Shown here is a 72-nucleotide RNA sequence from Biomphalaria glabrata, a member of the family "tRNA".
RNA sequence: GCCUUCGUGGCCAAGUGGUAAGGCGUCGGUCUCGUAAACCGAAGAUCCAGGGUUCAAUCCCCUGCGGAGGCA
Dot-bracket structure: (((((((..(((.........))).(((((.......))))).....(((((.......)))))))))))).
Transfer RNA (tRNA) molecules are approximately 80 nucleotides in length. Their secondary structure includes four short double-helical elements and three loops (D, anti-codon, and T loops). Further hydrogen bonds mediate the characteristic L-shaped molecular structure. tRNAs have two regions of fundamental functional importance: the anti-codon, which is responsible for specific mRNA codon recognition, and the 3' end, to which the tRNAs corresponding amino acid is attached (by aminoacyl-tRNA synthetases). tRNAs cope with the degeneracy of the genetic code in two manners: having more than one tRNA (with a specific anti-codon) for a particular amino acid; and 'wobble' base-pairing, i.e. permitting non-standard base-pairing at the 3rd anti-codon position. It is annotated as a transfer RNA. Taxonomically the source falls in Biomphalaria (Eukaryota, Opisthokonta, Gastropoda, Heterobranchia). A search with the family's covariance model found it, with a score of 70 bits. Rfam links the family to the GO term triplet codon-amino acid adaptor activity.